[Rfam]
The record is a 108-nucleotide RNA sequence from Plutella xylostella, which matches "mir-8517 microRNA precursor family" in Rfam. Lineage of the source: Eukaryota > Metazoa > Eumetazoa > Ditrysia > Plutella.
RNA sequence: UUACAGAACGUUUUAACUAAUAAACUGUUUUGUCCCUCUCCGACGAAGAACAAUUUGUUCUUUGACAGAGAGGGACAAAACAGUAUAUUAUUUAAAACGUUUUGUAAC
Numbered sequence: 001u002u003a004c005a006g007a008a009c010g011u012u013u014u015a016a017c018u019a020a021u022a023a024a025c026u027g028u029u030u031u032g033u034c035c036c037u038c039u040c041c042g043a044c045g046a047a048g049a050a051c052a053a054u055u056u057g058u059u060c061u062u063u064g065a066c067a068g069a070g071a072g073g074g075a076c077a078a079a080a081c082a083g084u085a086u087a088u089u090a091u092u093u094a095a096a097a098c099g100u101u102u103u104g105u106a107a108c
Stems, first nucleotide, its partner, number of pairs: 001107006011097006018090005024084005029069006049059004